Rfam assigns this 107-nucleotide RNA from Virgibacillus necropolis to the family "SAM riboswitch aptamer (S box leader)". Pairs were carried over by alignment from the consensus structure, which is taken from published work. The organism belongs to Virgibacillus, within Bacteria. The SAM riboswitch is found upstream of a number of genes which code for proteins involved in methionine or cysteine biosynthesis in Gram-positive bacteria. The SAM riboswitch acts at the level of transcription termination control. The predicted structure consists of a complex stem-loop region followed by a single stem loop terminator region. An alternative and mutually exclusive form involves bases in the 3' segment of helix 1 with those in the 5' region of helix 5 to form a structure termed the anti-terminator form. This entry represents the conserved core of the complex structure involving helices 1-4.
Nucleotides: 107
Stems, first nucleotide, its partner, number of pairs: 001107008013044001015043004022033003027082004046073003050070002054064001078099001083096005
Number, partner (000 for none) and nucleotide at each position: 001107u002106c003105c004104u005103u006102a007101u008100c009000a010000a011000g012000a013044g014000c015043c016042a017041g018040g019000g020000g021000a022033g023032g024031a025000a026000u027082u028081u029080g030079g031024u032023c033022c034000u035000a036000a037000g038000a039000u040018c041017c042016u043015g044013c045000g046073g047072c048071a049000a050070c051069c052000u053000g054064u055000u056000a057000u058000g059000u060000a061000a062000a063000u064054a065000a066000u067000a068000a069051g070050g071048u072047g073046c074000a075000c076000a077000u078099u079030c080029c081028a082027a083096c084095a085094g086093a087092c088000a089000u090000a091000u092087g093086u094085c095084u096083g097000a098000g099078a100008g101007a102006u103005g104004a105003g106002g107001a